Background: The record is a 170-nucleotide part of an RNA from Rhopalura ophiocomae, which matches "Eukaryotic small subunit ribosomal RNA" in Rfam. The source organism's lineage runs through Eukaryota, Eumetazoa, Mesozoa, Orthonectida and Rhopalura.
RNA sequence: CCGCCCGUCACUACUACUGAUUGAAUGGUUUAGUGAGGUCAUUGGAUUGAUCUCCUUGUGUUGAUUAAUUGAUACGAUGGAGAUUUGAGUAAGAUGAUCGAACUUGGCCAUUUAGAGGAAGUAAAAGUCGUAACAAGGUUUCCGUAGGUGAACCUGCAGAAGGAUCAAGC
Numbered sequence: 001c002c003g004c005c006c007g008u009c010a011c012u013a014c015u016a017c018u019g020a021u022u023g024a025a026u027g028g029u030u031u032a033g034u035g036a037g038g039u040c041a042u043u044g045g046a047u048u049g050a051u052c053u054c055c056u057u058g059u060g061u062u063g064a065u066u067a068a069u070u071g072a073u074a075c076g077a078u079g080g081a082g083a084u085u086u087g088a089g090u091a092a093g094a095u096g097a098u099c100g101a102a103c104u105u106g107g108c109c110a111u112u113u114a115g116a117g118g119a120a121g122u123a124a125a126a127g128u129c130g131u132a133a134c135a136a137g138g139u140u141u142c143c144g145u146a147g148g149u150g151a152a153c154c155u156g157c158a159g160a161a162g163g164a165u166c167a168a169g170c
Base pairs, nucleotide, nucleotide: 001137003134006130007129009127012123013122014121015120017118018117021114023113024112025111026110027109028108029107030106032104033103034102037099038098039097040096041095042094043093046090047089048088049085050084051083052082053081054080055079056077057076058075059074060073061072062071063070139162140161141160142159144157145156146155147154148153